The family of this 89-nucleotide sequence from Aquibacillus koreensis is "c-di-GMP-I riboswitch aptamer". A search with the family's covariance model found it, with a score of 72 bits. Rfam describes the family as follows. GEMM was predicted in a large-scale screen for bacterial structured RNA regulatory elements.

Nucleotides: 089
Stems, first nucleotide, its partner, number of pairs: 012037002017032006040083004047079002049075003056069004
Number, partner (000 for none) and nucleotide at each position: 001000u002000a003000c004000u005000g006000a007000c008000a009000a010000a011000g012037g013036c014000a015000a016000a017032g018031c019030c020029g021028c022027u023000u024000a025000a026000a027022g028021g029020u030019g031018g032017u033000g034000a035000c036013g037012c038000a039000a040083a041082g042081c043080u044000a045000u046000a047079g048078g049075g050074g051073c052000u053000a054000a055000g056069a057068g058067u059066g060000a061000a062000u063000g064000u065000u066059u067058a068057c069056u070000u071000a072000u073051g074050c075049u076000a077000g078048c079047c080043a081042g082041c083040u084000g085000c086000c087000g088000u089000a